[Rfam]
RNA sequence: GUUGGGAGUUGUGGCGUGCUCCUGUGAUCUAGCUACCUGGAGACCAGAGUCGGUGAACGGUGUGAGGGCAGGAGUCCUGCUUUCAGGUGAUCUAUGUUGAGCGGGCGUCCGCACUAAGAUCGGUAUCAAUAUGGGCACACCGAGGGAGCUCAGUGUGACCAGGUUGUCUAAGGAGGGACGUACAGGCCAAGGGCGGAAACGCAGCAGGCAAAAGUCCCCGUGUCGAUCAGUAGUGGGAUCGCGCCUGUGAAUAGGCAUCUGUCAGCAGCCUGUCCAAUACAAUUGGACUCGACUCUUU
Numbered sequence: 001g002u003u004g005g006g007a008g009u010u011g012u013g014g015c016g017u018g019c020u021c022c023u024g025u026g027a028u029c030u031a032g033c034u035a036c037c038u039g040g041a042g043a044c045c046a047g048a049g050u051c052g053g054u055g056a057a058c059g060g061u062g063u064g065a066g067g068g069c070a071g072g073a074g075u076c077c078u079g080c081u082u083u084c085a086g087g088u089g090a091u092c093u094a095u096g097u098u099g100a101g102c103g104g105g106c107g108u109c110c111g112c113a114c115u116a117a118g119a120u121c122g123g124u125a126u127c128a129a130u131a132u133g134g135g136c137a138c139a140c141c142g143a144g145g146g147a148g149c150u151c152a153g154u155g156u157g158a159c160c161a162g163g164u165u166g167u168c169u170a171a172g173g174a175g176g177g178a179c180g181u182a183c184a185g186g187c188c189a190a191g192g193g194c195g196g197a198a199a200c201g202c203a204g205c206a207g208g209c210a211a212a213a214g215u216c217c218c219c220g221u222g223u224c225g226a227u228c229a230g231u232a233g234u235g236g237g238a239u240c241g242c243g244c245c246u247g248u249g250a251a252u253a254g255g256c257a258u259c260u261g262u263c264a265g266c267a268g269c270c271u272g273u274c275c276a277a278u279a280c281a282a283u284u285g286g287a288c289u290c291g292a293c294u295c296u297u298u
Stems, first nucleotide, its partner, number of pairs: 001044003004023006028041003046296008058285004066275007077268005084261006091255005097249001101248008109237002112235005118228009127166004132161003136157005142151003167173002175218005186209003193202003